[Rfam]
The family of this 61-nucleotide RNA from Tachuris rubrigastra is "Small nucleolar RNA Z39".
The source organism's lineage runs through Eukaryota, Eumetazoa, Dipnotetrapodomorpha, Coelurosauria and Tachuris.
Its family is annotated with nucleolus and RNA processing in the Gene Ontology.
By type it is a C/D-box small nucleolar RNA.
The family has 5 seed sequences and 935 matches in Rfam 15.1.
RNA sequence: GCAUGCGUGAUGUGACAGAACAGGAUAAGAACCUAUGAUGCUGUAGAUGCUUUGUGAUGUG
Numbered sequence: 001g002c003a004u005g006c007g008u009g010a011u012g013u014g015a016c017a018g019a020a021c022a023g024g025a026u027a028a029g030a031a032c033c034u035a036u037g038a039u040g041c042u043g044u045a046g047a048u049g050c051u052u053u054g055u056g057a058u059g060u061g
Stems, first nucleotide, its partner, number of pairs: 002061004012053001014051001016049001021043003025039002